rne-II RNA: a 269-nucleotide RNA from Pseudomonas fluorescens.
[Rfam]
Nucleotides: 269
Stems, first nucleotide, its partner, number of pairs: 014097004023089006030082003036077003040050003059074004098134005137205003142179003145174004152166005183200007212236004216231004247266007
Number, partner (000 for none) and nucleotide at each position: 001000a002000u003000a004000c005000g006000u007000g008000u009000a010000g011000g012000g013000u014097g015096g016095a017094g018000a019000u020000g021000c022000a023089c024088a025087a026086c027085c028084g029000u030082c031081g032080g033000a034000c035000c036077g037076u038075g039000u040050a041049g042048c043000a044000c045000u046000a047000g048042g049041c050040u051000u052000a053000u054000a055000u056000u057000u058000a059074g060073a061072c062071g063000c064000u065000u066000c067000a068000u069000c070000u071062c072061g073060u074059c075038c076037a077036c078000a079000g080032u081031c082030g083000c084028c085027g086026g087025u088024u089023g090000a091000u092000u093000c094017c095016u096015c097014c098134u099133c100132c101131u102130g103000a104000c105000u106000g107000a108000g109000u110000g111000c112000u113000u114000a115000a116000g117000u118000a119000g120000c121000c122000a123000c124000a125000g126000c127000a128000a129000g130102c131101a132100g133099g134098a135000c136000g137205c138204g139203u140000a141000c142179g143178u144177c145174g146173c147172g148171a149000c150000u151000c152166c153165g154164g155163c156162c157000c158000a159000a160000u161000u162156g163155g164154u165153c166152g167000a168000a169000c170000c171148u172147c173146g174145c175000u176000a177144g178143a179142c180000a181000c182000u183200g184199g185198a186197g187196u188195g189194g190000c191000c192000a193000a194189c195188c196187a197186c198185u199184c200183c201000u202000g203139a204138c205137g206000c207000a208000c209000c210000u211000g212236a213235c214234a215233c216231c217230g218229a219228c220000c221000g222000u223000g224000a225000g226000a227000a228219g229218u230217c231216g232000u233215g234214u235213g236212u237000g238000c239000c240000g241000a242000a243000c244000g245000c246000c247266g248265u249264u250263u251262c252261c253260g254000g255000c256000a257000g258000c259000c260253c261252g262251g263250a264249a265248a266247c267000c268000g269000a